[Rfam]
RNA sequence: UGCCUGCUGUGCUGAUAAUCAGUGUGUGAGGUUAGCUGGCUCAGUUCAGCAGGAAC
Numbered sequence: 001u002g003c004c005u006g007c008u009g010u011g012c013u014g015a016u017a018a019u020c021a022g023u024g025u026g027u028g029a030g031g032u033u034a035g036c037u038g039g040c041u042c043a044g045u046u047c048a049g050c051a052g053g054a055a056c
Stems, first nucleotide, its partner, number of pairs: 001055001003053003007049003011045005019039005
A member of the RNA family "mir-24 microRNA precursor family" from Salmo salar, 56 nucleotides long. It is one of the family's seed sequences. The source organism's lineage runs through Eukaryota, Opisthokonta, Chordata, Teleostei and Salmo. The base pairs follow the family's consensus structure, which was predicted with RNAalifold. Gene Ontology terms of the family: RISC complex and miRNA-mediated post-transcriptional gene silencing. The family has 63 seed sequences and 1,372 matches in Rfam 15.1. Rfam's curators write: This family represents the microRNA (miRNA) mir-24 family. miRNAs are transcribed as ~70nt precursors (modelled here) and subsequently processed by the Dicer enzyme to give a ~22nt product. In this case the mature sequence comes from the 3' arm of the precursor. The extents of the hairpin precursors are not generally known and are estimated based on hairpin prediction. The products are thought to have regulatory roles through complementarity to mRNA. The involvement of Dicer in miRNA processing suggests a relationship with the phenomenon of RNA interference. miRNAs are numbered based on the sequence of the mature RNA. miR-24 has been identified in human and mouse. On this family, see Lagos-Quintana et al., Science 2001: "Identification of novel genes coding for small expressed RNAs".